Rfam assigns this 133-nucleotide sequence from Equus caballus to the family "Small nucleolar RNA SNORA61". The family's consensus secondary structure was predicted with PFOLD. Rfam links the family to the GO terms RNA processing and nucleolus.

Nucleotides: 133
Stems, first nucleotide, its partner, number of pairs: 003060005019047005025040004077121007093111003
Number, partner (000 for none) and nucleotide at each position: 001000c002000c003060c004059c005058u006057c007056c008000g009000g010000u011000u012000c013000c014000c015000u016000u017000u018000c019047c020046c021045a022044u023043c024000g025040g026039a027038u028037c029000u030000g031000a032000a033000c034000u035000c036000u037028g038027g039026u040025c041000u042000u043023g044022g045021u046020g047019g048000u049000c050000g051000u052000a053000a054000a055000a056007g057006g058005a059004g060003g061000a062000a063000a064000a065000g066000u067000a068000a069000u070000g071000c072000u073000g074000a075000a076000g077121c078120u079119g080118g081117c082116c083115u084000c085000a086000c087000g088000g089000c090000g091000c092000u093111u094110g095109u096000a097000g098000u099000c100000u101000g102000c103000u104000a105000u106000a107000g108000a109095g110094c111093a112000u113000g114000u115083g116082g117081g118080c119079u120078a121077g122000u123000u124000u125000c126000a127000c128000a129000c130000a131000a132000g133000g